[Rfam]
RNA sequence: GGGGAGCAUUUAAAGUCAUUGAUGUUGCCUGAUAUACCCUUCCAACAAGAAAAUCUCAAAUUUCCUGCUUGUUGAAUGUGAGUCAUGUUUGCAAGUCUCUUAACUAUGAGUCACUUA
Numbered sequence: 001g002g003g004g005a006g007c008a009u010u011u012a013a014a015g016u017c018a019u020u021g022a023u024g025u026u027g028c029c030u031g032a033u034a035u036a037c038c039c040u041u042c043c044a045a046c047a048a049g050a051a052a053a054u055c056u057c058a059a060a061u062u063u064c065c066u067g068c069u070u071g072u073u074g075a076a077u078g079u080g081a082g083u084c085a086u087g088u089u090u091g092c093a094a095g096u097c098u099c100u101u102a103a104c105u106a107u108g109a110g111u112c113a114c115u116u117a
Stems, first nucleotide, its partner, number of pairs: 001030003005026006055110003067096006074089001
Small nucleolar RNA snoR104: a 117-nucleotide RNA sequence from Cynara cardunculus. Its family is annotated with nucleolus and RNA processing in the Gene Ontology. For this family Rfam cites "Experimental RNomics: identification of 140 candidates for small non-messenger RNAs in the plant Arabidopsis thaliana" (Marker et al., Curr Biol, 2002). A search with the family's covariance model found it, with a score of 62 bits.